[Rfam]
RNA sequence: CGAACCACGACGGGAGAGUCCGGCGGACCGGCGCCCACCGUCGUCCUCGGUGGGCAGCGGGCCGACGGCGCCGAAGGAGCAAACCCCUCCCCGGGAAUCUCUCAGGCCCCCGUACCGUCGUGGCGAG
Numbered sequence: 001c002g003a004a005c006c007a008c009g010a011c012g013g014g015a016g017a018g019u020c021c022g023g024c025g026g027a028c029c030g031g032c033g034c035c036c037a038c039c040g041u042c043g044u045c046c047u048c049g050g051u052g053g054g055c056a057g058c059g060g061g062c063c064g065a066c067g068g069c070g071c072c073g074a075a076g077g078a079g080c081a082a083a084c085c086c087c088u089c090c091c092c093g094g095g096a097a098u099c100u101c102u103c104a105g106g107c108c109c110c111c112g113u114a115c116c117g118u119c120g121u122g123g124c125g126a127g
Base pairs, nucleotide, nucleotide: 006122007121008120009119010118011117012116013115020068021067022066070107071106072105073103074102077101078100079099084094085093
RNA: Glycine riboswitch aptamer